Record summary
Shown here is a 182-nucleotide RNA sequence from Herbinix hemicellulosilytica, a member of the family "Lysine riboswitch aptamer". About the family: Riboswitches are metabolite binding domains within certain messenger RNAs that serve as precision sensors for their corresponding targets. Allosteric rearrangement of mRNA structure is mediated by ligand binding, and this results in modulation of gene expression. This family includes riboswitches that sense lysine in a number of genes involved in lysine metabolism, including lysC. Gene Ontology term of the family: lysine biosynthetic process.

RNA sequence: CAGUGAGGUAGAGGCGCGGUAUUUAACAGUCCCCAGUGGAGCCUGAGAAGCGAUGAGGCUGGGGAGAAGGAAAUAUCGCCGAAGCAUAUAAUAUACUCGGUAUUAUAUGCUGGGCCUGCAGUUAAGAGCUGCAGGACUGUCUCAUAAAGUGGCCCGGCUUUAUGAGUUGCGCUAUCUCAUUG
Numbered sequence: 001c002a003g004u005g006a007g008g009u010a011g012a013g014g015c016g017c018g019g020u021a022u023u024u025a026a027c028a029g030u031c032c033c034c035a036g037u038g039g040a041g042c043c044u045g046a047g048a049a050g051c052g053a054u055g056a057g058g059c060u061g062g063g064g065a066g067a068a069g070g071a072a073a074u075a076u077c078g079c080c081g082a083a084g085c086a087u088a089u090a091a092u093a094u095a096c097u098c099g100g101u102a103u104u105a106u107a108u109g110c111u112g113g114g115c116c117u118g119c120a121g122u123u124a125a126g127a128g129c130u131g132c133a134g135g136a137c138u139g140u141c142u143c144a145u146a147a148a149g150u151g152g153c154c155c156g157g158c159u160u161u162a163u164g165a166g167u168u169g170c171g172c173u174a175u176c177u178c179a180u181u182g
Base pairs, nucleotide, nucleotide: 006177007176008175009174010173011172016079017078018077019076020075021074022073023072024071031064032063033062034061035060036059037058083111084110085109086108087107088106089105090104091103092102093101094100112138113137115135116134117133118132119131120130121129122128141166142165143164144163145162146161147160148159149158
Dot-bracket structure: .....((((((....(((((((((......(((((((....................)))))))......)))))))))...((((((((((((.....))))))))))))((.((((((((.....)))))))).))..(((((((((........))))))))).....)))))).....